About this RNA: A member of the RNA family "Eukaryotic large subunit ribosomal RNA" from Prorocentrum micans, 271 nucleotides of a longer RNA.
[Rfam]
Nucleotides: 271
Base pairs, nucleotide, nucleotide: 005127006126007125008124009123010122012120013119014118015117016116017115020044021043022042026038027037029035030034048055049054060079061078062077063076064075081110082109083107084106085105086103087102090097091096130269131268133266137259138258139257140256141255142254146235147234148233149232150231151230152229153228154227155226156225157223159191160190161189162188167182168181169180170179171178172177195220196219197218198217200216201215203214204213237247238246
Number, partner (000 for none) and nucleotide at each position: 001000g002000a003000g004000u005127c006126u007125a008124a009123c010122a011000u012120a013119u014118g015117u016116g017115c018000g019000a020044g021043u022042c023000c024000a025000c026038g027037g028000a029035u030034u031000g032000g033000u034030a035029a036000a037027c038026c039000u040000u041000g042022g043021g044020c045000g046000c047000a048055g049054u050000g051000a052000a053000a054049g055048c056000g057000a058000c059000u060079g061078c062077u063076g064075g065000g066000a067000u068000u069000u070000u071000u072000g073000c074000a075064c076063c077062a078061g079060c080000a081110a082109c083107c084106g085105a086103c087102c088000a089000a090097u091096c092000a093000a094000u095000u096091g097090a098000g099000a100000g101000a102087g103086g104000u105085u106084u107083g108000a109082g110081u111000a112000u113000g114000a115017g116016c117015a118014u119013a120012u121000c122010u123009g124008u125007u126006a127005g128000g129000a130269c131268c132000c133266g134000a135000a136000a137259g138258a139257u140256g141255g142254u143000g144000a145000a146235c147234u148233a149232u150231g151230c152229c153228u154227g155226a156225g157223a158000a159191g160190g161189g162188c163000a164000a165000a166000c167182u168181c169180a170179g171178g172177g173000g174000a175000a176000a177172c178171u179170c180169u181168g182167a183000u184000g185000g186000a187000g188162g189161c190160u191159c192000g193000u194000a195220g196219c197218g198217a199000u200216a201215c202000u203214g204213a205000c206000g207000u208000g209000c210000a211000a212000a213204u214203c215201g216200u217198u218197c219196g220195u221000c222000a223157u224000a225156c226155u227154u228153g229152g230151g231150u232149a233148u234147a235146g236000g237247g238246g239000c240000g241000a242000a243000a244000g245000a246238c247237u248000a249000a250000u251000c252000g253000a254142a255141c256140c257139a258138u259137c260000u261000a262000g263000u264000a265000g266133c267000u268131g269130g270000u271000u
Its Rfam clan is "LSU clan". The organism belongs to Prorocentrum, within Eukaryota.